The record is a 225-nucleotide sequence from Solanum tuberosum, which matches "MIR8007 microRNA precursor family" in Rfam. Rfam 15.1 lists 104 matches to the family in 3 species. The source organism's lineage runs through Eukaryota, Streptophyta, Magnoliopsida, Gunneridae and Solanum. The base pairs follow the family's consensus structure, which was predicted with RNAalifold. Rfam links the family to the GO terms RISC complex and miRNA-mediated post-transcriptional gene silencing.
[Rfam]
RNA sequence: AUGUGGCACUUUUCGGAUUUCGAGAUUCAAACAAGUCUAUCUUUGACCGUAAGUUUUUCAUAGAUCUUUUAAACAUUUUGAAUUAUCAAUUAUUGUGACUUAUAAUACUUUUUACGUAGUUUACAAAUAUAUAAAUUUCAUUUAAAUUUUUUUGAAGAUUCCGUGCGCGAAUUCCCGGUCAAACGUAAACUGUUUGACUCUCGAAAAACAAAAAGUGCCACAUAA
Numbered sequence: 001a002u003g004u005g006g007c008a009c010u011u012u013u014c015g016g017a018u019u020u021c022g023a024g025a026u027u028c029a030a031a032c033a034a035g036u037c038u039a040u041c042u043u044u045g046a047c048c049g050u051a052a053g054u055u056u057u058u059c060a061u062a063g064a065u066c067u068u069u070u071a072a073a074c075a076u077u078u079u080g081a082a083u084u085a086u087c088a089a090u091u092a093u094u095g096u097g098a099c100u101u102a103u104a105a106u107a108c109u110u111u112u113u114a115c116g117u118a119g120u121u122u123a124c125a126a127a128u129a130u131a132u133a134a135a136u137u138u139c140a141u142u143u144a145a146a147u148u149u150u151u152u153u154g155a156a157g158a159u160u161c162c163g164u165g166c167g168c169g170a171a172u173u174c175c176c177g178g179u180c181a182a183a184c185g186u187a188a189a190c191u192g193u194u195u196g197a198c199u200c201u202c203g204a205a206a207a208a209c210a211a212a213a214a215g216u217g218c219c220a221c222a223u224a225a
Base pairs, nucleotide, nucleotide: 001223002222003221004220005219006218007217008216009215010214011213012212013211015209018206019205020204021203022202023201024200025199027197028196029195030194031193032192033191035190036189038187039186040185042183043182044181045180046179047178048177049176052173053172054171055170056169057167059165060164061163063160064159065158066157067156068155069154077146078145079144080143081142084140094133095132096131097130100126101125103123104122105121107120108119109118